Shown here is a 148-nucleotide RNA sequence from Salix koriyanagi, a member of the family "MIR530 microRNA precursor family". A reference for the family is Lu et al. (2008), "Stress-responsive microRNAs in Populus", Plant J. Gene Ontology terms of the family: RISC complex and miRNA-mediated post-transcriptional gene silencing. A search with the family's covariance model found it, with a score of 120 bits.
RNA sequence: GCCAAUAUGUUGCCUUUAUCUGCAUUUGCACCUGCAUCUUGUUUUUUUUACUCCACAACCAAAAUCAAGUUCAUACAGUUCGUCAGAUAUGGAGAUUAAUAAGCUUAGUUGAGGUGCAGGUGCAGGUGCAGGUGAAUGCCAUUUUGGU
Numbered sequence: 001g002c003c004a005a006u007a008u009g010u011u012g013c014c015u016u017u018a019u020c021u022g023c024a025u026u027u028g029c030a031c032c033u034g035c036a037u038c039u040u041g042u043u044u045u046u047u048u049u050a051c052u053c054c055a056c057a058a059c060c061a062a063a064a065u066c067a068a069g070u071u072c073a074u075a076c077a078g079u080u081c082g083u084c085a086g087a088u089a090u091g092g093a094g095a096u097u098a099a100u101a102a103g104c105u106u107a108g109u110u111g112a113g114g115u116g117c118a119g120g121u122g123c124a125g126g127u128g129c130a131g132g133u134g135a136a137u138g139c140c141a142u143u144u145u146g147g148u
Stems, first nucleotide, its partner, number of pairs: 001148005007142003012139002015136027